The family of this 79-nucleotide RNA sequence from Pelodiscus sinensis is "Small nucleolar RNA SNORD69". By type it is a C/D-box small nucleolar RNA. A search with the family's covariance model found it, with a score of 62 bits. For this family Rfam cites "RNomics: an experimental approach that identifies 201 candidates for novel, small, non-messenger RNAs in mouse" (Huttenhofer et al., EMBO J, 2001). Rfam links the family to the GO terms nucleolus and RNA processing. snoRNA HBII-210 belongs to the C/D family of snoRNAs. It is the human orthologue of the mouse MBII-210 and is predicted to guide the 2'O-ribose methylation of large 28S rRNA on residue G4464. Taxonomically the source falls in Pelodiscus (Eukaryota, Amniota, Sauria, Testudinata).
[Rfam]
RNA sequence: CACAUGAAGCGCAUGAUGAUGCACUUGAACUGACUCUGCAUGAGGAGUUUAUAUUCAAUCCAACACUGAGCUUCAUAUG
Numbered sequence: 001c002a003c004a005u006g007a008a009g010c011g012c013a014u015g016a017u018g019a020u021g022c023a024c025u026u027g028a029a030c031u032g033a034c035u036c037u038g039c040a041u042g043a044g045g046a047g048u049u050u051a052u053a054u055u056c057a058a059u060c061c062a063a064c065a066c067u068g069a070g071c072u073u074c075a076u077a078u079g
Base pairs, nucleotide, nucleotide: 001079002078004076005075006074007073008072009071010070